Annotation
Plant small nucleolar RNA U3: a 217-nucleotide RNA from Eucalyptus grandis. A reference for the family is Marz and Stadler (2010), "Comparative analysis of eukaryotic U3 snoRNA", RNA Biol. By type it is a C/D-box small nucleolar RNA. Small nucleolar RNAs (snoRNAs) are involved in the processing and modification of rRNA in the nucleolus. There are two main classes of snoRNAs: the box C/D class, and the box H/ACA class. NCBI's taxonomy places the organism under Eukaryota, Spermatophyta, Gunneridae, malvids, Eucalyptus. A search with the family's covariance model found it, with a score of 195 bits.

RNA sequence: ACGACCUUACUUGAACAGGAUCUGUUCUAUAGGCUCGUACCUCUGUGUCCUUGAGACCUAAGGAGACAGGAACCAAAGUCUGGUGGAUGAACUAUGGCCGUGCGACCAGAGCGUGAUUAACAGCUCCGGCGGGUCAUUUCCGACCCCUCGGAGUCGUAGAGGAUCGUUCUCAGUCGGAGUAUACGGCUGGGGUGGUCACACGGCGGUCUGACAGACU
Numbered sequence: 001a002c003g004a005c006c007u008u009a010c011u012u013g014a015a016c017a018g019g020a021u022c023u024g025u026u027c028u029a030u031a032g033g034c035u036c037g038u039a040c041c042u043c044u045g046u047g048u049c050c051u052u053g054a055g056a057c058c059u060a061a062g063g064a065g066a067c068a069g070g071a072a073c074c075a076a077a078g079u080c081u082g083g084u085g086g087a088u089g090a091a092c093u094a095u096g097g098c099c100g101u102g103c104g105a106c107c108a109g110a111g112c113g114u115g116a117u118u119a120a121c122a123g124c125u126c127c128g129g130c131g132g133g134u135c136a137u138u139u140c141c142g143a144c145c146c147c148u149c150g151g152a153g154u155c156g157u158a159g160a161g162g163a164u165c166g167u168u169c170u171c172a173g174u175c176g177g178a179g180u181a182u183a184c185g186g187c188u189g190g191g192g193u194g195g196u197c198a199c200a201c202g203g204c205g206g207u208c209u210g211a212c213a214g215a216c217u
Stems, first nucleotide, its partner, number of pairs: 001038002003035001005033003013027006043069004048064006078216005097204006104197005110168004120157002123154007131146005170190007178182001